[Rfam]
RNA sequence: UGUCUGCGAUGAAUCGGAAAGUUGCUGUUACUAAUUCAGGUCACUUCUGAGGAGUAUGUCACGAUCUUAGAAUCGGGCGA
Numbered sequence: 001u002g003u004c005u006g007c008g009a010u011g012a013a014u015c016g017g018a019a020a021g022u023u024g025c026u027g028u029u030a031c032u033a034a035u036u037c038a039g040g041u042c043a044c045u046u047c048u049g050a051g052g053a054g055u056a057u058g059u060c061a062c063g064a065u066c067u068u069a070g071a072a073u074c075g076g077g078c079g080a
Base pairs, nucleotide, nucleotide: 014050015049016048019046020045021044025039026038027037057079058078059077060076062075063074064073065072